[Rfam]
RNA sequence: CCGGCAGGUCGGGCCAUCGCCUCCUGAUCUCAUGGAGGAGGAAAGUCCGGGCUCCAUAGAGCAGGGUACCAGAUAACAUCUGGGCGGAGAUGCGAUACCAUCUCCGACAGAAAGUGCCACAGAAAGGAUACCGCCUGCCCCUCUGGCAGGUAAGGGUGAAAUGGUGGGGUAAGAGCCCACCGGCACGCUGGUAACAGUGGGCGCAGGGCAAACCUUACCCGGAGCAAGGUCAAGCAGCGGGGGCUUGCUCGGCCGUACAACCCGCGGGUGGACCGCUCCAGCCUCAAGGCGACCAGAUAAAUGAUGGCCUAGAACAGAACCCGGCUUACGGGCCUGCCGGCUUU
Numbered sequence: 001c002c003g004g005c006a007g008g009u010c011g012g013g014c015c016a017u018c019g020c021c022u023c024c025u026g027a028u029c030u031c032a033u034g035g036a037g038g039a040g041g042a043a044a045g046u047c048c049g050g051g052c053u054c055c056a057u058a059g060a061g062c063a064g065g066g067u068a069c070c071a072g073a074u075a076a077c078a079u080c081u082g083g084g085c086g087g088a089g090a091u092g093c094g095a096u097a098c099c100a101u102c103u104c105c106g107a108c109a110g111a112a113a114g115u116g117c118c119a120c121a122g123a124a125a126g127g128a129u130a131c132c133g134c135c136u137g138c139c140c141c142u143c144u145g146g147c148a149g150g151u152a153a154g155g156g157u158g159a160a161a162u163g164g165u166g167g168g169g170u171a172a173g174a175g176c177c178c179a180c181c182g183g184c185a186c187g188c189u190g191g192u193a194a195c196a197g198u199g200g201g202c203g204c205a206g207g208g209c210a211a212a213c214c215u216u217a218c219c220c221g222g223a224g225c226a227a228g229g230u231c232a233a234g235c236a237g238c239g240g241g242g243g244c245u246u247g248c249u250c251g252g253c254c255g256u257a258c259a260a261c262c263c264g265c266g267g268g269u270g271g272a273c274c275g276c277u278c279c280a281g282c283c284u285c286a287a288g289g290c291g292a293c294c295a296g297a298u299a300a301a302u303g304a305u306g307g308c309c310u311a312g313a314a315c316a317g318a319a320c321c322c323g324g325c326u327u328a329c330g331g332g333c334c335u336g337c338c339g340g341c342u343u344u
Stems, first nucleotide, its partner, number of pairs: 001340010011329001012309007020038005043327003047324005052224004059254001061253002064220005069083005084108001085106008109215002114213002116209003131155002133151007163181006182204001183202002186199005228274004237265005246259002250255001281290003
The record is a 344-nucleotide RNA from Winmispira thermophila, which matches "Bacterial RNase P class A" in Rfam. It scores 270 bits against the family's covariance model. Taxonomically the source falls in Winmispira thermophila (Bacteria, Spirochaetia, Winmispiraceae, Winmispira).